[Rfam]
RNA sequence: GGACGAGAAGACCCCAUUGAGCUUUACUGCAGUCUGAUGCUGCGGUAUGAUGAUGGUUGCAUAGUGUAGGUGGGAGCGUCGAACCUGCGUCUUUGGGUGCAGGGAAUGCGCCAAUGUAACACCACCCCCCCGUCCUCAUAUCGCUUAUCCUUCGGGAGACACCAUUUGAUGGGCAGUUUGGCUGGGGCGGUACGCCUCUGAUAAGGGAUCAGAGGCGCCCUAAGGUCGGCUCAUUCCGGUCAGAAAUCGGAAUUAGAGUGUAAGAGCAAAAGCCGGCCUGAUAGGAUCCUACAAAGCAAGGGAUCCUAACGCGAAAGCGUGGUCUAGCGAUCCGCUGUGUCUUUAUUAGAUGAAAGCCAGCUCUGACAGAAAAGUUACCAUGGGGAUAAUGGAGUCGUGACGCGUGAGAGUCCAUAGCGCAUGACUGCUUGUUCAGUAUUUACAGGCAGUCCGUGGAUAUAUCGACCGCGUUCGUUGCUUCUCCGCCGUCGGCUCGGCUCUUCCUGGACGUGCAGCAGCGUCCAAGGGUGGGGGUGUUCACCCAUCAAAGAGCCACGUUAGCUGGGUUAAAUACGGUGCGAGCCAGUAUGGUCUAUAUCU
Numbered sequence: 001g002g003a004c005g006a007g008a009a010g011a012c013c014c015c016a017u018u019g020a021g022c023u024u025u026a027c028u029g030c031a032g033u034c035u036g037a038u039g040c041u042g043c044g045g046u047a048u049g050a051u052g053a054u055g056g057u058u059g060c061a062u063a064g065u066g067u068a069g070g071u072g073g074g075a076g077c078g079u080c081g082a083a084c085c086u087g088c089g090u091c092u093u094u095g096g097g098u099g100c101a102g103g104g105a106a107u108g109c110g111c112c113a114a115u116g117u118a119a120c121a122c123c124a125c126c127c128c129c130c131c132g133u134c135c136u137c138a139u140a141u142c143g144c145u146u147a148u149c150c151u152u153c154g155g156g157a158g159a160c161a162c163c164a165u166u167u168g169a170u171g172g173g174c175a176g177u178u179u180g181g182c183u184g185g186g187g188c189g190g191u192a193c194g195c196c197u198c199u200g201a202u203a204a205g206g207g208a209u210c211a212g213a214g215g216c217g218c219c220c221u222a223a224g225g226u227c228g229g230c231u232c233a234u235u236c237c238g239g240u241c242a243g244a245a246a247u248c249g250g251a252a253u254u255a256g257a258g259u260g261u262a263a264g265a266g267c268a269a270a271a272g273c274c275g276g277c278c279u280g281a282u283a284g285g286a287u288c289c290u291a292c293a294a295a296g297c298a299a300g301g302g303a304u305c306c307u308a309a310c311g312c313g314a315a316a317g318c319g320u321g322g323u324c325u326a327g328c329g330a331u332c333c334g335c336u337g338u339g340u341c342u343u344u345a346u347u348a349g350a351u352g353a354a355a356g357c358c359a360g361c362u363c364u365g366a367c368a369g370a371a372a373a374g375u376u377a378c379c380a381u382g383g384g385g386a387u388a389a390u391g392g393a394g395u396c397g398u399g400a401c402g403c404g405u406g407a408g409a410g411u412c413c414a415u416a417g418c419g420c421a422u423g424a425c426u427g428c429u430u431g432u433u434c435a436g437u438a439u440u441u442a443c444a445g446g447c448a449g450u451c452c453g454u455g456g457a458u459a460u461a462u463c464g465a466c467c468g469c470g471u472u473c474g475u476u477g478c479u480u481c482u483c484c485g486c487c488g489u490c491g492g493c494u495c496g497g498c499u500c501u502u503c504c505u506g507g508a509c510g511u512g513c514a515g516c517a518g519c520g521u522c523c524a525a526g527g528g529u530g531g532g533g534g535u536g537u538u539c540a541c542c543c544a545u546c547a548a549a550g551a552g553c554c555a556c557g558u559u560a561g562c563u564g565g566g567u568u569a570a571a572u573a574c575g576g577u578g579c580g581a582g583c584c585a586g587u588a589u590g591g592u593c594u595a596u597a598u599c600u
Base pairs, nucleotide, nucleotide: 001600002599003598006594013384014383015382016381018380019379020376021375022374023373024372026177027176028175029174033169034168036166037165038164039163042144043143044142045141046140047139048138049137050136052134053133054132055131056130059127069126070125071124072123073122076109077108078107087100088099089098090097091096148157149156150155180193181191182190183189194216195215196214197213198212199211219322220321225277226276227275228274229273230272231257232256234252235251236250237249238248239247258267259266282308283307284306285305286304287303288302289301290300310319312317334361335360336359337358339357341356342355343354344353393479394478395477397476399472400471401470402469403468404467408463409462490565491563492562493561494560495557496554497553498552499551500550503528504527507522508521509520510519511518531543532542533541571589572588573587574586575584576583577582
The record is a 600-nucleotide part of an RNA from a Candidatus Aenigmatarchaeota archaeon, which matches "Archaeal large subunit ribosomal RNA" in Rfam. The organism belongs to Candidatus Aenigmatarchaeota, within Archaea.